[Rfam]
RNA sequence: UCGUCAGGUAGGAUAAUCCUUACCUGUUCCUCCGUUUGGAGGGCAGAAUAGAAUAUGAUGAUUGGAGCUCGCAUGAUUCGUGAUUAACGGCUCUGCGUGAUCAGGACUUGCAACACCCUGAUUGCUCCUGUCUGAU
Numbered sequence: 001u002c003g004u005c006a007g008g009u010a011g012g013a014u015a016a017u018c019c020u021u022a023c024c025u026g027u028u029c030c031u032c033c034g035u036u037u038g039g040a041g042g043g044c045a046g047a048a049u050a051g052a053a054u055a056u057g058a059u060g061a062u063u064g065g066a067g068c069u070c071g072c073a074u075g076a077u078u079c080g081u082g083a084u085u086a087a088c089g090g091c092u093c094u095g096c097g098u099g100a101u102c103a104g105g106a107c108u109u110g111c112a113a114c115a116c117c118c119u120g121a122u123u124g125c126u127c128c129u130g131u132c133u134g135a136u
Stems, first nucleotide, its partner, number of pairs: 024046003028043006075093002078090003081086001097125009

The family of this 136-nucleotide RNA sequence from Camelus dromedarius is "U8 small nucleolar RNA". Rfam classes the family as a C/D-box small nucleolar RNA. The match comes from Rfam's covariance-model search (146 bits). The literature on the family includes a 2001 paper in Gene by Peculis et al., "The U8 snoRNA gene family: identification and characterization of distinct, functional U8 genes in Xenopus". The family has 55 seed sequences and 1,597 matches in Rfam 15.1.